A member of the RNA family "mir-46/mir-47/mir-281 microRNA precursor family" from Cotesia congregata, 85 nucleotides long.
On this family, see Lau et al., Science 2001: "An abundant class of tiny RNAs with probable regulatory roles in Caenorhabditis elegans".
Its family is annotated with miRNA-mediated post-transcriptional gene silencing and RISC complex in the Gene Ontology.
[Rfam]
RNA sequence: AGAUGGACGCUAUGAAGAGAGCUAUCCAUCGACAGUAUGGUAAUAAUGACACUGUCAUGGAAUUGCUCUCUUUGUUGACGCCGUC
Numbered sequence: 001a002g003a004u005g006g007a008c009g010c011u012a013u014g015a016a017g018a019g020a021g022c023u024a025u026c027c028a029u030c031g032a033c034a035g036u037a038u039g040g041u042a043a044u045a046a047u048g049a050c051a052c053u054g055u056c057a058u059g060g061a062a063u064u065g066c067u068c069u070c071u072u073u074g075u076u077g078a079c080g081c082c083g084u085c
Stems, first nucleotide, its partner, number of pairs: 014073005020067003025061004031056003035052002
The family has 57 seed sequences and 307 matches in Rfam 15.1.